[Rfam]
RNA sequence: GGCGCCGAGGAGCGCUGCGGCCCGACCCUGCACCGCCGGAGCCCCUGCUUCUGGCGCGCGGGGGUCGGGCGAGGCUCGACGCGGGUCACUGCAGUAUGAACGGCGCCCAUUCCUG
Number, nucleotide and partner (000 for none) at each position: 001g000002g082003c081004g080005c000006c078007g077008a076009g000010g000011a000012g000013c000014g000015c000016u000017g000018c000019g000020g000021c069022c068023c067024g066025a065026c064027c063028c062029u061030g000031c000032a000033c000034c000035g000036c000037c000038g000039g000040a000041g000042c000043c000044c000045c000046u000047g000048c000049u000050u000051c000052u000053g000054g000055c000056g000057c000058g000059c000060g000061g029062g028063g027064g026065u025066c024067g023068g022069g021070c000071g000072a000073g000074g000075c000076u008077c007078g006079a000080c004081g003082c002083g000084g000085g000086u000087c000088a000089c000090u000091g000092c000093a000094g000095u000096a000097u000098g000099a000100a000101c000102g000103g000104c000105g000106c000107c000108c000109a000110u000111u000112c000113c000114u000115g000